[Rfam]
RNA sequence: GCCAAGUGAUUCAAAGUAGAUGACAUUAGCACUGUGUGCAAAGAUGACUUACAUCUAUCACCCAAUACUGAUGGCU
Numbered sequence: 001g002c003c004a005a006g007u008g009a010u011u012c013a014a015a016g017u018a019g020a021u022g023a024c025a026u027u028a029g030c031a032c033u034g035u036g037u038g039c040a041a042a043g044a045u046g047a048c049u050u051a052c053a054u055c056u057a058u059c060a061c062c063c064a065a066u067a068c069u070g071a072u073g074g075c076u
Stems, first nucleotide, its partner, number of pairs: 001075004029039004

Description:
Small nucleolar RNA SNORD83: a 76-nucleotide sequence from Chelydra serpentina. Rfam links the family to the GO terms RNA processing and nucleolus. The base pairs follow the family's consensus structure, which was predicted with PFOLD. The match comes from Rfam's covariance-model search (55 bits). Rfam 15.1 lists 1,393 matches to the family in 644 species. By type it is a C/D-box small nucleolar RNA.